This 164-nucleotide RNA from Nocardia wallacei belongs to the Rfam family "c-di-AMP riboswitch aptamer (ydaO/yuaA leader)".
The match comes from Rfam's covariance-model search (79 bits).

[Rfam]
RNA sequence: AUCGAGUUACCGCCUAAUCGGUGGUCGGGUGGGCAGCCCGAUCAUCGAGCCGGGGACCCAGGUUUGUGGGGUGAAUCCCUUUCGGUCACAAGGCCGAUCGGGUAGGGCCGAACUUCCCGGCCCGAACCCGUCAGCUAACCCGGUCGGUGGGUGGGCAGGAAGAA
Numbered sequence: 001a002u003c004g005a006g007u008u009a010c011c012g013c014c015u016a017a018u019c020g021g022u023g024g025u026c027g028g029g030u031g032g033g034c035a036g037c038c039c040g041a042u043c044a045u046c047g048a049g050c051c052g053g054g055g056a057c058c059c060a061g062g063u064u065u066g067u068g069g070g071g072u073g074a075a076u077c078c079c080u081u082u083c084g085g086u087c088a089c090a091a092g093g094c095c096g097a098u099c100g101g102g103u104a105g106g107g108c109c110g111a112a113c114u115u116c117c118c119g120g121c122c123c124g125a126a127c128c129c130g131u132c133a134g135c136u137a138a139c140c141c142g143g144u145c146g147g148u149g150g151g152u153g154g155g156c157a158g159g160a161a162g163a164a
Stems, first nucleotide, its partner, number of pairs: 011149004018048013049144006059068002069129003077102003105123004